[Rfam]
RNA sequence: GUAUACGAAGUUAGCUCAUUUUUCGUAUACAAAAUUGGACAGUGAAAAUUUUGUGAUUCGACUAGGGACCCCCUCCAGCGACGGCCGAACUAGGCUAGCCAUGCCUAUAGUAGGACUAGCAAACGGAGGGACUAGCCACAGUGGUGAGCUCCCUGGGUAGUCUAAGCCCUGAGUACAGGGCAGUCGUCAGUAGUUCGACACAGGCAAGGGCCUGUCUCGAGAUGCUACGUGGACGAGGGCGUGCCCAAGACAUACCUUAACCCGGGCGGGGGUCGCUCGGGUAAAACCACCUUGUGUGGUGGGAGUACAGCCUGAUAGGGUGUUGCAGAGACCCACUAGUAGGCUAGUAUAAAAUACUCUGCUGUACAUGGCAC
Numbered sequence: 001g002u003a004u005a006c007g008a009a010g011u012u013a014g015c016u017c018a019u020u021u022u023u024c025g026u027a028u029a030c031a032a033a034a035u036u037g038g039a040c041a042g043u044g045a046a047a048a049u050u051u052u053g054u055g056a057u058u059c060g061a062c063u064a065g066g067g068a069c070c071c072c073c074u075c076c077a078g079c080g081a082c083g084g085c086c087g088a089a090c091u092a093g094g095c096u097a098g099c100c101a102u103g104c105c106u107a108u109a110g111u112a113g114g115a116c117u118a119g120c121a122a123a124c125g126g127a128g129g130g131a132c133u134a135g136c137c138a139c140a141g142u143g144g145u146g147a148g149c150u151c152c153c154u155g156g157g158u159a160g161u162c163u164a165a166g167c168c169c170u171g172a173g174u175a176c177a178g179g180g181c182a183g184u185c186g187u188c189a190g191u192a193g194u195u196c197g198a199c200a201c202a203g204g205c206a207a208g209g210g211c212c213u214g215u216c217u218c219g220a221g222a223u224g225c226u227a228c229g230u231g232g233a234c235g236a237g238g239g240c241g242u243g244c245c246c247a248a249g250a251c252a253u254a255c256c257u258u259a260a261c262c263c264g265g266g267c268g269g270g271g272g273u274c275g276c277u278c279g280g281g282u283a284a285a286a287c288c289a290c291c292u293u294g295u296g297u298g299g300u301g302g303g304a305g306u307a308c309a310g311c312c313u314g315a316u317a318g319g320g321u322g323u324u325g326c327a328g329a330g331a332c333c334c335a336c337u338a339g340u341a342g343g344c345u346a347g348u349a350u351a352a353a354a355u356a357c358u359c360u361g362c363u364g365u366a367c368a369u370g371g372c373a374c
Base pairs, nucleotide, nucleotide: 001030002029003028004027005026006025007024008023009022071130072129073128074127075126076125078120079119083117084116085114086113091107092106093105094104095103131348132347133346134345135344136343137342140337141336142335143334144333145309146308148306149305150304151303152302153301155257156256157255158254159253160251161250162249163248166181167180168179169178170177171176184236185235186234187233188232190228191227192226193225194224195220196219197218198217200215201214202213203212204211205210237246238245239244260282261281262280263279264278265277266276267275268274269273286300287299288298289297290296310321311320312319313318323364325362326361327360328359329358330357